[Rfam]
RNA sequence: CAUGAUGAGACUGAAAUGAUCUUGGAUUGUAUAGAAGGUAGUCCCAGUCGCCCCCACUCAGACUCUUGCACAGUAUACUGUGCAAGAGUAAGGUGAGAAACAACUUAAGUUGGAAACUUUAAUUUUAUUAAGAGAUUAAGGAACUGG
Numbered sequence: 001c002a003u004g005a006u007g008a009g010a011c012u013g014a015a016a017u018g019a020u021c022u023u024g025g026a027u028u029g030u031a032u033a034g035a036a037g038g039u040a041g042u043c044c045c046a047g048u049c050g051c052c053c054c055c056a057c058u059c060a061g062a063c064u065c066u067u068g069c070a071c072a073g074u075a076u077a078c079u080g081u082g083c084a085a086g087a088g089u090a091a092g093g094u095g096a097g098a099a100a101c102a103a104c105u106u107a108a109g110u111u112g113g114a115a116a117c118u119u120u121a122a123u124u125u126u127a128u129u130a131a132g133a134g135a136u137u138a139a140g141g142a143a144c145u146g147g
Stems, first nucleotide, its partner, number of pairs: 006024005012018001037052003044147004057097003062089010073078001101112004117141009
Record summary:
A member of the RNA family "IS605-orfB-II RNA", 147 nucleotides long. The family's consensus secondary structure is taken from published work. It is one of the family's seed sequences.